[Rfam]
The family of this 32-nucleotide RNA sequence is "ffh sRNA". The sequence is in the family's curated seed alignment.
RNA sequence: ACCGCCCGACAGCGCAAUGCGCCCUCGGGCGU
Numbered sequence: 001a002c003c004g005c006c007c008g009a010c011a012g013c014g015c016a017a018u019g020c021g022c023c024c025u026c027g028g029g030c031g032u
Base pairs, nucleotide, nucleotide: 003031004030005029006028007027008026009025012022013021014020015019
Dot-bracket structure: ..(((((((..((((...))))..))))))).

The family's consensus secondary structure is taken from published work.